[Rfam]
Small nucleolar RNA snoR8a: an 85-nucleotide sequence from Cannabis sativa.
RNA sequence: UUGGUUGCGAUGAUUGUAAAAAUUCCUCGUACUGAUUGCCAUAUGGGCAUGACAGACAACUUUACACCCAUAGAAUAUGAGCACC
Numbered sequence: 001u002u003g004g005u006u007g008c009g010a011u012g013a014u015u016g017u018a019a020a021a022a023u024u025c026c027u028c029g030u031a032c033u034g035a036u037u038g039c040c041a042u043a044u045g046g047g048c049a050u051g052a053c054a055g056a057c058a059a060c061u062u063u064a065c066a067c068c069c070a071u072a073g074a075a076u077a078u079g080a081g082c083a084c085c
Stems, first nucleotide, its partner, number of pairs: 003085002006083002
Source information:
On this family, see Brown et al., RNA 2001: "Multiple snoRNA gene clusters from Arabidopsis". Lineage of the source: Eukaryota > Streptophyta > Embryophyta > Spermatophyta > Cannabis. The family's RNA type in Rfam is C/D-box small nucleolar RNA.